[Rfam]
RNA sequence: GGGUCGGCAGUUCACCCAGUCUCCGCCGCCUGCAGCACGCAGGUACGCUGAACCUGCUC
Numbered sequence: 001g002g003g004u005c006g007g008c009a010g011u012u013c014a015c016c017c018a019g020u021c022u023c024c025g026c027c028g029c030c031u032g033c034a035g036c037a038c039g040c041a042g043g044u045a046c047g048c049u050g051a052a053c054c055u056g057c058u059c
Stems, first nucleotide, its partner, number of pairs: 001017004029043004
RNA: COG3860 RNA
Organism: Salipiger sp. CCB-MM3